Nucleotides: 093
Base pairs, nucleotide, nucleotide: 012090013057014056015055016054017053018052058076059075060074062072063071064070077089078088079087
Number, partner (000 for none) and nucleotide at each position: 001000a002000u003000a004000a005000u006000g007000a008000u009000a010000c011000u012090u013057c014056c015055g016054u017053u018052c019000c020000g021000u022000c023000a024000u025000a026000g027000c028000c029000c030000c031000c032000a033000g034000c035000a036000g037000g038000g039000g040000a041000a042000c043000a044000c045000g046000c047000a048000a049000u050000g051000a052018g053017a054016g055015c056014g057013g058076c059075c060074g061000g062072g063071u064070g065000a066000a067000a068000a069000c070064c071063a072062c073000g074060c075059g076058g077089g078088g079087g080000u081000g082000a083000g084000a085000u086000u087079c088078c089077c090012a091000u092000g093000u
This 93-nucleotide RNA belongs to the Rfam family "pemK RNA". Rfam classes the family as a cis-regulatory element.